This 65-nucleotide RNA sequence from Myripristis murdjan belongs to the Rfam family "Selenocysteine insertion sequence 1". The organism belongs to Myripristis, within Eukaryota. The incorporation of selenocysteine into a protein sequence is directed by an in-frame UGA codon (usually a stop codon) within the coding region of the mRNA. Selenoprotein mRNAs contain a conserved secondary structure in the 3' UTR that is required for the distinction of UGA stop from UGA selenocysteine. The family's consensus secondary structure is taken from published work. By type it is a cis-regulatory element. The family has 61 seed sequences and 3,793 matches in Rfam 15.1.
RNA sequence: UUUACUUAAUGAAGGGACCCCCUGAAACCAAGCCUUUGUGAGGGGGGUAUCUGAUGAAAUGUAAA
Numbered sequence: 001u002u003u004a005c006u007u008a009a010u011g012a013a014g015g016g017a018c019c020c021c022c023u024g025a026a027a028c029c030a031a032g033c034c035u036u037u038g039u040g041a042g043g044g045g046g047g048u049a050u051c052u053g054a055u056g057a058a059a060u061g062u063a064a065a
Base pairs, nucleotide, nucleotide: 001065002064003063004062005061014051015050017048018047019046020045021044022043023042029038030037031036